[Rfam]
RNA sequence: AGCUGAUGCAACACGACGGCUUUCCUCCCAGUUCCGUCGUUUCAGCUGUUCCCCUCUGGAGGUUUAUAUCUCCACAAUUAAUGGGCCACGGUUUACCGUCGGCCCUCUUUU
Numbered sequence: 001a002g003c004u005g006a007u008g009c010a011a012c013a014c015g016a017c018g019g020c021u022u023u024c025c026u027c028c029c030a031g032u033u034c035c036g037u038c039g040u041u042u043c044a045g046c047u048g049u050u051c052c053c054c055u056c057u058g059g060a061g062g063u064u065u066a067u068a069u070c071u072c073c074a075c076a077a078u079u080a081a082u083g084g085g086c087c088a089c090g091g092u093u094u095a096c097c098g099u100c101g102g103c104c105c106u107c108u109u110u111u
Base pairs, nucleotide, nucleotide: 001047002046003045004044005043008040009039016037017036018035019034057074058073059072060071061070062069063068083105084104085103086102087101088099089098090097091096

The record is a 111-nucleotide RNA sequence from Rhizobium leguminosarum, which matches "Alphaproteobacterial ar15" in Rfam. By type it is a small RNA.